Description
The record is a 72-nucleotide RNA sequence, which matches "L2-Alphaproteobacteria ribosomal protein leader" in Rfam. The family's consensus secondary structure is taken from published work. The sequence is in the family's curated seed alignment.
[Rfam]
RNA sequence: GGGCACCUUCGGGGGCCUUCAUACCAUAGCGUCGGGAGGACCCGACGUGUUUAGCUAAACGGAAGACAGCAA
Numbered sequence: 001g002g003g004c005a006c007c008u009u010c011g012g013g014g015g016c017c018u019u020c021a022u023a024c025c026a027u028a029g030c031g032u033c034g035g036g037a038g039g040a041c042c043c044g045a046c047g048u049g050u051u052u053a054g055c056u057a058a059a060c061g062g063a064a065g066a067c068a069g070c071a072a
Base pairs, nucleotide, nucleotide: 001018002017003016004015006014007013008012029048030047031046032045033044034043035042